[Rfam]
RNA sequence: AUAAUGAUACUUCUGCCGAGUCCCAGACAUCGCAAGGACGGCAGCCUCCAUGACGGGGGAGGUGAGAUGCCUAUGU
Numbered sequence: 001a002u003a004a005u006g007a008u009a010c011u012u013c014u015g016c017c018g019a020g021u022c023c024c025a026g027a028c029a030u031c032g033c034a035a036g037g038a039c040g041g042c043a044g045c046c047u048c049c050a051u052g053a054c055g056g057g058g059g060a061g062g063u064g065a066g067a068u069g070c071c072u073a074u075g076u
Stems, first nucleotide, its partner, number of pairs: 012073001013044006045059005060072003
A member of the RNA family "pemK RNA", 76 nucleotides long.